Molybdenum/Tungsten riboswitch aptamer (Moco RNA motif): a 143-nucleotide RNA sequence from Dyella choica. A reference for the family is Regulski et al. (2008), "in molybdenum cofactor and tungsten cofactor metabolism", Mol Microbiol. NCBI's taxonomy places the organism under Bacteria, Pseudomonadati, Gammaproteobacteria, Rhodanobacteraceae, Dyella. The match comes from Rfam's covariance-model search (69 bits).

[Rfam]
RNA sequence: CACCACUUACAACUCCGAGGCGCCCAGCCUGCGGUUCCUUCAUCCGGAACAUGGCUUGGCGUCCGUGAUCCCCCAAGGGACCACCAGGGUGGACGCGGAAACGCGUUCGCCUCCCGGCUUGGAAAGGAGCAAAGAUUCAUGUC
Dot-bracket structure: ............((((..((((((.((((....((((.........))))..)))).)))))).(((.(((......))).)))..(((((((((((....)))))))))))((......))...))))..............
Numbered sequence: 001c002a003c004c005a006c007u008u009a010c011a012a013c014u015c016c017g018a019g020g021c022g023c024c025c026a027g028c029c030u031g032c033g034g035u036u037c038c039u040u041c042a043u044c045c046g047g048a049a050c051a052u053g054g055c056u057u058g059g060c061g062u063c064c065g066u067g068a069u070c071c072c073c074c075a076a077g078g079g080a081c082c083a084c085c086a087g088g089g090u091g092g093a094c095g096c097g098g099a100a101a102c103g104c105g106u107u108c109g110c111c112u113c114c115c116g117g118c119u120u121g122g123a124a125a126g127g128a129g130c131a132a133a134g135a136u137u138c139a140u141g142u143c
Stems, first nucleotide, its partner, number of pairs: 013129004019063006026056004034050004065084003069080003087112011113122002